[Rfam]
RNA sequence: CGGUCGGGUGCCUCUCGGUGGGACGAGGGGCAAGAAUGGACUGGACUUCCCCGUUCGCCAAGGCGGCGCGCCGUACCCCGACGGCCCGCUG
Numbered sequence: 001c002g003g004u005c006g007g008g009u010g011c012c013u014c015u016c017g018g019u020g021g022g023a024c025g026a027g028g029g030g031c032a033a034g035a036a037u038g039g040a041c042u043g044g045a046c047u048u049c050c051c052c053g054u055u056c057g058c059c060a061a062g063g064c065g066g067c068g069c070g071c072c073g074u075a076c077c078c079c080g081a082c083g084g085c086c087c088g089c090u091g
Base pairs, nucleotide, nucleotide: 001043002042003041004040005039010031011030012029013028014027015026016025017024064091065090066089067088068087070085071084072083073082
RNA: Rhodo-rpoB RNA